[Rfam]
RNA: Small nucleolar RNA SNORD91 family
RNA sequence: GCAGGAAGCCAGUGAUGUCUUAGCCGUGGUGUCUGAACCUGGCUGAAGGACUUGUGAAGAUUCACUUUCAGGCUCUGAGGCUUCCAGAGCA
Numbered sequence: 001g002c003a004g005g006a007a008g009c010c011a012g013u014g015a016u017g018u019c020u021u022a023g024c025c026g027u028g029g030u031g032u033c034u035g036a037a038c039c040u041g042g043c044u045g046a047a048g049g050a051c052u053u054g055u056g057a058a059g060a061u062u063c064a065c066u067u068u069c070a071g072g073c074u075c076u077g078a079g080g081c082u083u084c085c086a087g088a089g090c091a
Base pairs, nucleotide, nucleotide: 004085005084006083007082008081009080010079